[Rfam]
RNA sequence: GCGGAUGUAGCUCAGUGGUAGAGCGUUACUUUGCCAAGGUAAAAGUCGUGGGUUCAAUUCCCAUCAUCCGCU
Numbered sequence: 001g002c003g004g005a006u007g008u009a010g011c012u013c014a015g016u017g018g019u020a021g022a023g024c025g026u027u028a029c030u031u032u033g034c035c036a037a038g039g040u041a042a043a044a045g046u047c048g049u050g051g052g053u054u055c056a057a058u059u060c061c062c063a064u065c066a067u068c069c070g071c072u
Stems, first nucleotide, its partner, number of pairs: 001071007010024004026042005048064005